[Rfam]
RNA sequence: UAAUGAGGGCAUAGAAAAGGAGUUAUGAGCUGGUACUCAUAACUCCCGUGUAGAACCGUUAAAGACGGUGGCUAGUAAAACAAAAAUUUUAGU
Dot-bracket structure: .......................((((((......)))))).............((((((...))))))........................

Annotation
A member of the RNA family "RNA anti-toxin A" from Pediococcus stilesii, 93 nucleotides long. For this family Rfam cites "Abundance of type I toxin-antitoxin systems in bacteria: searches for new candidates and discovery of novel families" (Fozo et al., Nucleic Acids Res, 2010). The organism belongs to Pediococcus, within Bacteria. The family has 16 seed sequences and 190 matches in Rfam 15.1.